Record summary:
mir-9243 microRNA precursor family: an 81-nucleotide RNA from Cnephaeus nilssonii.

[Rfam]
Nucleotides: 081
Base pairs, nucleotide, nucleotide: 001079002078004076005075006074007073009071010070011069013068014067015066017064018063019062020061021060022059023058024057025056026055027054028053029052030051031050032049033048034047035046
Number, partner (000 for none) and nucleotide at each position: 001079c002078c003000g004076u005075g006074c007073a008000c009071g010070a011069a012000u013068u014067u015066c016000a017064u018063g019062c020061a021060c022059c023058g024057g025056g026055c027054c028053u029052c030051u031050a032049g033048a034047a035046u036000a037000u038000a039000u040000a041000u042000g043000u044000a045000u046035a047034u048033u049032c050031u051030a052029g053028a054027g055026g056025c057024c058023c059022g060021g061020u062019g063018c064017a065000u066015g067014a068013a069011u070010u071009c072000a073007u074006g075005c076004a077000u078002g079001g080000g081000u
Rfam links the family to the GO terms miRNA-mediated post-transcriptional gene silencing and RISC complex.
The source organism's lineage runs through Eukaryota, Vertebrata, Amniota, Laurasiatheria and Cnephaeus.
The family's consensus secondary structure was predicted with RNAalifold.
It scores 83 bits against the family's covariance model.